RNA sequence: AUUGAUAGAAGAGGCGCGAAGUCCAAGAGUCGCCACAGCAAGGUUGAUCAGAACCGGUGCGGUGUGGUAAAAGGGGCCUUCGCCGAAAUGCGGUCUGACUGAUUUCAGGCGGUGUUGGGUCUUGGCUUAAUAGGUCAAGGACUGUCGCAACGAAGGAGUUGCGGGGCGCUUUCUACGAU
Numbered sequence: 001a002u003u004g005a006u007a008g009a010a011g012a013g014g015c016g017c018g019a020a021g022u023c024c025a026a027g028a029g030u031c032g033c034c035a036c037a038g039c040a041a042g043g044u045u046g047a048u049c050a051g052a053a054c055c056g057g058u059g060c061g062g063u064g065u066g067g068u069a070a071a072a073g074g075g076g077c078c079u080u081c082g083c084c085g086a087a088a089u090g091c092g093g094u095c096u097g098a099c100u101g102a103u104u105u106c107a108g109g110c111g112g113u114g115u116u117g118g119g120u121c122u123u124g125g126c127u128u129a130a131u132a133g134g135u136c137a138a139g140g141a142c143u144g145u146c147g148c149a150a151c152g153a154a155g156g157a158g159u160u161g162c163g164g165g166g167c168g169c170u171u172u173c174u175a176c177g178a179u
Stems, first nucleotide, its partner, number of pairs: 008172004016083006023076002032068006039061001087116005093110006117143002120140008145164007
The family of this 179-nucleotide sequence from Secundilactobacillus kimchicus is "Lysine riboswitch aptamer". Lineage of the source: Bacteria > Bacillati > Bacillota > Lactobacillaceae > Secundilactobacillus kimchicus.